[Rfam]
RNA: T-box leader
RNA sequence: AAAUAAGCAUAGAAAGGGAAAAGUAUUAUAGAAUACAGUUUUCAGAGAGAAAAUGUUAUAAGCUGAAAGCAUUUUUAAAUAUGCCUAUAAGAAAAACUACCCUGGAGCUAUGACUGAUUAACUUUGUGAUUAAUUAUUUUCUAUAAAUUAAUCAUUUUAUACAAAGUAAAAGUGAAAUGUCAUCGGCGAAAGCCGUUAAAAAUAGAGAGAUGAAUUAAAUUUUUAAUUUAAUUUGGGUGGAACCACGGAAGUAAAGCAUUCGUCCCAAGA
Numbered sequence: 001a002a003a004u005a006a007g008c009a010u011a012g013a014a015a016g017g018g019a020a021a022a023g024u025a026u027u028a029u030a031g032a033a034u035a036c037a038g039u040u041u042u043c044a045g046a047g048a049g050a051a052a053a054u055g056u057u058a059u060a061a062g063c064u065g066a067a068a069g070c071a072u073u074u075u076u077a078a079a080u081a082u083g084c085c086u087a088u089a090a091g092a093a094a095a096a097c098u099a100c101c102c103u104g105g106a107g108c109u110a111u112g113a114c115u116g117a118u119u120a121a122c123u124u125u126g127u128g129a130u131u132a133a134u135u136a137u138u139u140u141c142u143a144u145a146a147a148u149u150a151a152u153c154a155u156u157u158u159a160u161a162c163a164a165a166g167u168a169a170a171a172g173u174g175a176a177a178u179g180u181c182a183u184c185g186g187c188g189a190a191a192g193c194c195g196u197u198a199a200a201a202a203u204a205g206a207g208a209g210a211u212g213a214a215u216u217a218a219a220u221u222u223u224u225a226a227u228u229u230a231a232u233u234u235g236g237g238u239g240g241a242a243c244c245a246c247g248g249a250a251g252u253a254a255a256g257c258a259u260u261c262g263u264c265c266c267a268a269g270a
Stems, first nucleotide, its partner, number of pairs: 007108002015103004026090006039078002049076008111182004184195003212229007234267004245263005